[Rfam]
A member of the RNA family "Plastid-psbA-1 3UTR RNA" from Populus deltoides, 134 nucleotides long.
It scores 73 bits against the family's covariance model.
RNA sequence: UCAUGUUCCCAUCUACAAAUGGAUAAGACUUUUGUAAAUGGAUAAGGCUUUUGUCUUAGUGUAUACGAGCUUUUGAAAAAAAAAAGGAGCAAUCUCCAAUUUCUUGUUCUAUCAAGAGGGUUGGCAUUACUCCU
Numbered sequence: 001u002c003a004u005g006u007u008c009c010c011a012u013c014u015a016c017a018a019a020u021g022g023a024u025a026a027g028a029c030u031u032u033u034g035u036a037a038a039u040g041g042a043u044a045a046g047g048c049u050u051u052u053g054u055c056u057u058a059g060u061g062u063a064u065a066c067g068a069g070c071u072u073u074u075g076a077a078a079a080a081a082a083a084a085a086g087g088a089g090c091a092a093u094c095u096c097c098a099a100u101u102u103c104u105u106g107u108u109c110u111a112u113c114a115a116g117a118g119g120g121u122u123g124g125c126a127u128u129a130c131u132c133c134u
Stems, first nucleotide, its partner, number of pairs: 007042001009041004085134005091128003095124001098121001101118005